RNA: SAM-V (S-adenosyl methionine) riboswitch aptamer
Organism: Pelagibacterales bacterium SAG-MED03
RNA sequence: CAAUAAGCAAGGUAGUUGAACUGUAUUGUGCACCUAGCAAAAAGCUGAAGCACUAAAAAAGUGA
Numbered sequence: 001c002a003a004u005a006a007g008c009a010a011g012g013u014a015g016u017u018g019a020a021c022u023g024u025a026u027u028g029u030g031c032a033c034c035u036a037g038c039a040a041a042a043a044g045c046u047g048a049a050g051c052a053c054u055a056a057a058a059a060a061g062u063g064a
Stems, first nucleotide, its partner, number of pairs: 010035004026056002028053004037045002